A member of the RNA family "mir-29 microRNA precursor family" from Aquarana catesbeiana, 71 nucleotides long. The family's consensus secondary structure was predicted with PFOLD. Rfam describes the family as follows. This family represents the microRNA (miRNA) precursors mir-29. It scores 68 bits against the family's covariance model. The family has 168 seed sequences and 3,328 matches in Rfam 15.1.

RNA sequence: AGAAGCUGGUUUCUUGUGGUGACUUAGAUUUAAAAAUGAAUGUAUCUAGCACCAUUUGAAAUCAGUGUUUU
Numbered sequence: 001a002g003a004a005g006c007u008g009g010u011u012u013c014u015u016g017u018g019g020u021g022a023c024u025u026a027g028a029u030u031u032a033a034a035a036a037u038g039a040a041u042g043u044a045u046c047u048a049g050c051a052c053c054a055u056u057u058g059a060a061a062u063c064a065g066u067g068u069u070u071u
Stems, first nucleotide, its partner, number of pairs: 001071004005066009016055006025048004